[Rfam]
RNA sequence: AAAAGGUGUAGAGGUAGCCUCUCCUAGGCUUUGUCUGUAAAUUCGAAGAGACAUAGCCUGAUUGAGGCUAACUCUAGCCUAAGCA
Numbered sequence: 001a002a003a004a005g006g007u008g009u010a011g012a013g014g015u016a017g018c019c020u021c022u023c024c025u026a027g028g029c030u031u032u033g034u035c036u037g038u039a040a041a042u043u044c045g046a047a048g049a050g051a052c053a054u055a056g057c058c059u060g061a062u063u064g065a066g067g068c069u070a071a072c073u074c075u076a077g078c079c080u081a082a083g084c085a
Base pairs, nucleotide, nucleotide: 012073013072015070016069017068018067019066020065027058028057029056030055032053033052034051035050036049

Shown here is an 85-nucleotide RNA sequence from Zophobas morio, a member of the family "mir-282 microRNA precursor family". Gene Ontology terms of the family: miRNA-mediated post-transcriptional gene silencing and RISC complex. Rfam 15.1 lists 136 matches to the family in 128 species. Taxonomically the source falls in Zophobas (Eukaryota, Metazoa, Pancrustacea, Altocrustacea). A reference for the family is Li et al. (2009), "Direct sequencing and expression analysis of a large number of miRNAs in Aedes aegypti and a multi-species survey of novel mosquito miRNAs", BMC Genomics. The match comes from Rfam's covariance-model search (69 bits). Pairs were carried over by alignment from the consensus structure, which was predicted with RNAalifold.